Bacterial RNase P class A: a 350-nucleotide RNA from Candidatus Planktophila vernalis.
The base pairs follow the family's consensus structure, which is taken from published work.
A search with the family's covariance model found it, with a score of 308 bits.
Taxonomically the source falls in Candidatus Planktophila (Bacteria, Actinomycetota, Actinomycetes, Candidatus Nanopelagicales).
It is annotated as a ribozyme.
Rfam's curators write: Ribonuclease P (RNase P) is a ubiquitous endoribonuclease, found in archaea, bacteria and eukarya as well as chloroplasts and mitochondria.

RNA sequence: AGAGUCGCCCGGAUCACCGCGUUACGAAAGUACCGAGGAAAGUCCGGACUCCAAAGAGCAAAGUGGUGGGUAACGCCCACCCGGAGCAAUCCGCGGGAUUAGUGCAACAGAAAGCAAACCGCCAACGAAAGUUGGUAAGGGUGAAACGGCGGUGUAAGAGACCACCAGUAAUUGCAGCAAUGCAGUUAGCUAUGUAAACCCCACUUGGAGCAAGACCAUGCAGUUGGCGCUUGAGAGCUGCUCGCUCGAGUCAACGGGUAGGUUGCUUGAAUCUGUAAGUAAUUACAGAUCUAGAUGGAUGGUGAUCCCUCGCAAGAGGACAGGAUCCGGCUUAUAGGGCGACUCUUCUC
Numbered sequence: 001a002g003a004g005u006c007g008c009c010c011g012g013a014u015c016a017c018c019g020c021g022u023u024a025c026g027a028a029a030g031u032a033c034c035g036a037g038g039a040a041a042g043u044c045c046g047g048a049c050u051c052c053a054a055a056g057a058g059c060a061a062a063g064u065g066g067u068g069g070g071u072a073a074c075g076c077c078c079a080c081c082c083g084g085a086g087c088a089a090u091c092c093g094c095g096g097g098a099u100u101a102g103u104g105c106a107a108c109a110g111a112a113a114g115c116a117a118a119c120c121g122c123c124a125a126c127g128a129a130a131g132u133u134g135g136u137a138a139g140g141g142u143g144a145a146a147c148g149g150c151g152g153u154g155u156a157a158g159a160g161a162c163c164a165c166c167a168g169u170a171a172u173u174g175c176a177g178c179a180a181u182g183c184a185g186u187u188a189g190c191u192a193u194g195u196a197a198a199c200c201c202c203a204c205u206u207g208g209a210g211c212a213a214g215a216c217c218a219u220g221c222a223g224u225u226g227g228c229g230c231u232u233g234a235g236a237g238c239u240g241c242u243c244g245c246u247c248g249a250g251u252c253a254a255c256g257g258g259u260a261g262g263u264u265g266c267u268u269g270a271a272u273c274u275g276u277a278a279g280u281a282a283u284u285a286c287a288g289a290u291c292u293a294g295a296u297g298g299a300u301g302g303u304g305a306u307c308c309c310u311c312g313c314a315a316g317a318g319g320a321c322a323g324g325a326u327c328c329g330g331c332u333u334a335u336a337g338g339g340c341g342a343c344u345c346u347u348c349u350c
Base pairs, nucleotide, nucleotide: 001346002345003344004343005342006341007340008339009338010337011335012307013306014305015304016303017302018301020035021034023032024031025030040333041332042331044330045329046328047327048326049210050209051208052207056243057242058241059240061206062205063204064203065202066080067079068078069077070076081095082093083092084091085090096201097200102199103198104195105194106193119140120139121136122135123134124133125132126131148166149165151163152162153161168190169188170187171186172185173184174183175182176181214264215263216262217261223255224254225253226252227251228250235247236246237245238244271290272289273288274287275286276285277284278283